Source information:
The record is a 170-nucleotide RNA from Actinobacillus pleuropneumoniae, which matches "Molybdenum/Tungsten riboswitch aptamer (Moco RNA motif)" in Rfam. The match comes from Rfam's covariance-model search (67 bits). The source organism's lineage runs through Bacteria, Pasteurellales, Pasteurellaceae, Actinobacillus and Actinobacillus pleuropneumoniae serovar 5.

RNA sequence: UAACUUACAGGAUACCGAGCUUGUAUGCCUAAGUCUUAGAUAAGGUGUGCAAGCCUGUGGCAAGCGGUUAAAAUUCACAAAAUUUUUGCAAAAUCAGACCGCUUACACACCGGAUAGUAAAGAAAUGCACUAUCCCCUCGUGUUUAGAAAGGUGUCAAAUUCAACUUAAC
Numbered sequence: 001u002a003a004c005u006u007a008c009a010g011g012a013u014a015c016c017g018a019g020c021u022u023g024u025a026u027g028c029c030u031a032a033g034u035c036u037u038a039g040a041u042a043a044g045g046u047g048u049g050c051a052a053g054c055c056u057g058u059g060g061c062a063a064g065c066g067g068u069u070a071a072a073a074u075u076c077a078c079a080a081a082a083u084u085u086u087u088g089c090a091a092a093a094u095c096a097g098a099c100c101g102c103u104u105a106c107a108c109a110c111c112g113g114a115u116a117g118u119a120a121a122g123a124a125a126u127g128c129a130c131u132a133u134c135c136c137c138u139c140g141u142g143u144u145u146a147g148a149a150a151g152g153u154g155u156c157a158a159a160u161u162c163a164a165c166u167u168a169a170c
Stems, first nucleotide, its partner, number of pairs: 011156006019054011033041003056109004112135007121126001137147002
Dot-bracket structure: ..........((((((..(((((((((((...(((...)))..))))))))))).((((..............................................))))..(((((((..(....)..))))))).((.......))...))))))..............